[Rfam]
RNA sequence: UCCCACACAGUCCCCAAUUCUGGUUUUCCGCAAGGAAUGUCUAUCGCAGACCCCCCUUUUAGGCUUGUCGCCCAGAAUAUGCUGCCCACGAGUCCUGCAACAGCUCUCGUCGCCGGCAGCAUUUGGAUGUAUUCUGGCCACUUCGCCAUCGGUCACUAGAUGGCCAAGCCUAGCCGGGGGAACUCAGUCUUGGAACUUAACCCUAAAAUCUUUG
Numbered sequence: 001u002c003c004c005a006c007a008c009a010g011u012c013c014c015c016a017a018u019u020c021u022g023g024u025u026u027u028c029c030g031c032a033a034g035g036a037a038u039g040u041c042u043a044u045c046g047c048a049g050a051c052c053c054c055c056c057u058u059u060u061a062g063g064c065u066u067g068u069c070g071c072c073c074a075g076a077a078u079a080u081g082c083u084g085c086c087c088a089c090g091a092g093u094c095c096u097g098c099a100a101c102a103g104c105u106c107u108c109g110u111c112g113c114c115g116g117c118a119g120c121a122u123u124u125g126g127a128u129g130u131a132u133u134c135u136g137g138c139c140a141c142u143u144c145g146c147c148a149u150c151g152g153u154c155a156c157u158a159g160a161u162g163g164c165c166a167a168g169c170c171u172a173g174c175c176g177g178g179g180g181a182a183c184u185c186a187g188u189c190u191u192g193g194a195a196c197u198u199a200a201c202c203c204u205a206a207a208a209u210c211u212u213u214g
Stems, first nucleotide, its partner, number of pairs: 009197003014193004

A member of the RNA family "Ascomycota telomerase RNA" from Escovopsis weberi, 214 nucleotides of a longer RNA.
Its Rfam clan is "Telomerase clan".
The family's RNA type in Rfam is non-coding RNA gene.
The literature on the family includes a 2013 paper in Nucleic Acids Res by Qi et al., "The common ancestral core of vertebrate and fungal telomerase RNAs".